The record is a 102-nucleotide RNA from Ciceribacter sp. L1K22, which matches "RcsR1 sRNA" in Rfam. RcsR1 (rhizobial cold and salinity stress riboregulator 1) trans-acting sRNA, formerly known as SmelC587, is a stress-related riboregulator, conserved in Sinorhizobium, Rhizobium and Agrobacterium. Rfam links the family to the GO terms negative regulation of translation in response to stress and sRNA-mediated gene silencing. On this family, see Baumgardt et al., RNA Biol 2015: "The stress-related, rhizobial small RNA RcsR1 destabilizes the autoinducer synthase encoding mRNA sinI in Sinorhizobium meliloti". A search with the family's covariance model found it, with a score of 78 bits. The family's RNA type in Rfam is small RNA.

Nucleotides: 102
Stems, first nucleotide, its partner, number of pairs: 011044005017038001019037004024033003048058001050056002069098008077089003
Number, partner (000 for none) and nucleotide at each position: 001000a002000c003000a004000u005000u006000g007000g008000c009000a010000a011044c012043u013042g014041g015040u016000g017038g018000u019037g020036g021035g022034c023000u024033c025032g026031c027000u028000g029000a030000c031026g032025c033024g034022g035021c036020c037019u038017u039000g040015a041014c042013c043012a044011g045000u046000c047000a048058u049000g050056u051055c052000c053000a054000u055051g056050a057000a058048a059000a060000c061000g062000u063000g064000a065000c066000c067000c068000a069098a070097a071096g072095c073094c074093g075092c076091c077089c078088g079087g080000a081000g082000a083000c084000u085000u086000c087079c088078u089077g090000a091076g092075g093074c094073g095072g096071c097070u098069u099000u100000u101000u102000u